[Rfam]
Nucleotides: 315
Stems, first nucleotide, its partner, number of pairs: 003313006011063004015033007038059004043054001067305008077295001079293001081291001083288001086286009096277003099270005106263003111258002117255008126243007133235005139228001142177002145174001148171010182226006193218004201210003
Number, partner (000 for none) and nucleotide at each position: 001000c002000c003313g004312c005311g006310g007309g008308c009000u010000a011063g012062u013061c014060c015033g016032g017031g018030u019029g020028g021027c022000u023000c024000g025000g026000c027021g028020u029019c030018a031017c032016c033015u034000g035000u036000a037000a038059c039058c040057c041056g042000a043054g044000a045000u046000c047000g048000c049000c050000g051000a052000u053000a054043u055000g056041c057040g058039g059038g060014g061013g062012a063011c064000g065000a066000a067305g068304c069303u070302g071301g072300u073299g074298g075000a076000c077295g078000a079293c080000u081291g082000c083288g084000g085000u086286g087285c088284u089283g090282c091281a092280g093279g094278u095000a096277c097276a098275g099270u100269c101268c102267a103266g104000u105000u106263g107262c108261c109000g110000a111258c112257u113000g114000u115000g116000a117255u118254u119253c120252u121251c122250c123249g124248c125000c126243c127242u128241g129240u130239g131238g132237g133235g134234a135233c136232a137231g138000c139228a140000u141000u142177g143176a144000c145174g146000u147000u148171c149170g150169g151168g152167c153166c154165u155164g156163c157162c158000g159000g160000a161000g162157g163156g164155c165154a166153g167152g168151u169150c170149u171148g172000u173000u174145c175000a176143u177142c178000u179000c180000a181000a182226c183225u184224g185223c186222g187221g188000g189000g190000a191000c192000c193218g194217g195216u196215u197000c198000a199000g200000g201210c202209c203208c204000g205000g206000a207000a208203g209202g210201g211000a212000g213000c214000a215196g216195a217194c218193c219000u220000a221187c222186c223185g224184c225183g226182g227000a228139u229000a230000a231137c232136u233135g234134u235133c236000g237132c238131u239130u240129g241128c242127a243126g244000a245000c246000u247000u248124g249123c250122g251121g252120g253119g254118a255117g256000g257112a258111g259000a260000a261108g262107g263106u264000c265000u266103c267102u268101g269100g270099g271000g272000c273000a274000c275098c276097u277096g278094g279093c280092c281091u282090g283089u284088g285087g286086c287000g288083u289000u290000g291081c292000u293079g294000g295077c296000u297000a298074c299073c300072g301071c302070c303069g304068g305067c306000g307000c308008g309007c310006c311005c312004g313003c314000a315000u